[Rfam]
RNA sequence: UUUAAUCAAACUUACUAAAACACACACAUAUCAGUAAGGCUAAAUCGGGGUGCCAAACGGUCGAUUGGCUGGAUAUGUGGAGGCUAAAC
Numbered sequence: 001u002u003u004a005a006u007c008a009a010a011c012u013u014a015c016u017a018a019a020a021c022a023c024a025c026a027c028a029u030a031u032c033a034g035u036a037a038g039g040c041u042a043a044a045u046c047g048g049g050g051u052g053c054c055a056a057a058c059g060g061u062c063g064a065u066u067g068g069c070u071g072g073a074u075a076u077g078u079g080g081a082g083g084c085u086a087a088a089c
Stems, first nucleotide, its partner, number of pairs: 025079008038070005044065004052061003
Dot-bracket structure: ........................((((((((.....(((((.((((....(((....)))))))))))).))))))))..........
RNA: t44 RNA